A member of the RNA family "Small nucleolar RNA SNORA3/SNORA45 family" from Microcebus murinus, 130 nucleotides long. Rfam describes the family as follows. The members of this family belong to the H/ACA class of snoRNAs which are thought to guide the sites of modification of uridines to pseudouridines. This family includes mouse snoMBI-28 and human homologues ACA3 (SNORA3) and ACA3-2 (SNORA45). Both ACA3 and ACA3-2 share the same host gene. MBI-28, ACA3 and ACA3-2 are all predicted to guide the pseudouridylation of residues in 28S rRNA. Rfam 15.1 lists 2,080 matches to the family in 639 species. Its Rfam clan is "SNORA3 clan". Gene Ontology terms of the family: nucleolus and RNA processing. A search with the family's covariance model found it, with a score of 100 bits.
[Rfam]
RNA sequence: AUCGAGGCUAAAGUCACACUUAGGUAUUGGUUAUUGCCGUAGUGUGCUAGAGUCUUCAAAGAGUAACUGCUGAACUUAUUCAUUGGCUGUGGCCCUCAUGGCAUAUUCAGUUACCAGGUUAGUGACAUGC
Numbered sequence: 001a002u003c004g005a006g007g008c009u010a011a012a013g014u015c016a017c018a019c020u021u022a023g024g025u026a027u028u029g030g031u032u033a034u035u036g037c038c039g040u041a042g043u044g045u046g047c048u049a050g051a052g053u054c055u056u057c058a059a060a061g062a063g064u065a066a067c068u069g070c071u072g073a074a075c076u077u078a079u080u081c082a083u084u085g086g087c088u089g090u091g092g093c094c095c096u097c098a099u100g101g102c103a104u105a106u107u108c109a110g111u112u113a114c115c116a117g118g119u120u121a122g123u124g125a126c127a128u129g130c
Base pairs, nucleotide, nucleotide: 002059004057005056006055007053008052009051012048013047015046016045017044018043019042020041023038024037025036026035070122071121072120073119075117076116082111083110084109085108086107088105089104090103091102093100